[Rfam]
RNA sequence: AGGUGAGUAAGUCCUUCUGAAAGGAUGAUGCCCGCGGACGCGGGGUGGGAUCGAGUAAGAAUGGUUUCACCU
Dot-bracket structure: ((((((......((.(((............(((((....))))).............)))..))..))))))
Numbered sequence: 001a002g003g004u005g006a007g008u009a010a011g012u013c014c015u016u017c018u019g020a021a022a023g024g025a026u027g028a029u030g031c032c033c034g035c036g037g038a039c040g041c042g043g044g045g046u047g048g049g050a051u052c053g054a055g056u057a058a059g060a061a062u063g064g065u066u067u068c069a070c071c072u
Stems, first nucleotide, its partner, number of pairs: 001072006013064002016060003031044005